[Rfam]
This 75-nucleotide RNA sequence from Myotis myotis belongs to the Rfam family "mir-9223 microRNA precursor family".
Lineage of the source: Eukaryota > Eumetazoa > Deuterostomia > Vertebrata > Myotis.
It scores 61 bits against the family's covariance model.
RNA sequence: AGCAGUUCUUGAGUGACGCACCCCAGCAUCAGGCUCCCUCCUCUCUGGUUCUGGAUGCAUCACUUGAGAAACCCA
Numbered sequence: 001a002g003c004a005g006u007u008c009u010u011g012a013g014u015g016a017c018g019c020a021c022c023c024c025a026g027c028a029u030c031a032g033g034c035u036c037c038c039u040c041c042u043c044u045c046u047g048g049u050u051c052u053g054g055a056u057g058c059a060u061c062a063c064u065u066g067a068g069a070a071a072c073c074c075a
Stems, first nucleotide, its partner, number of pairs: 002074001006070011019057002022054002025052002028049006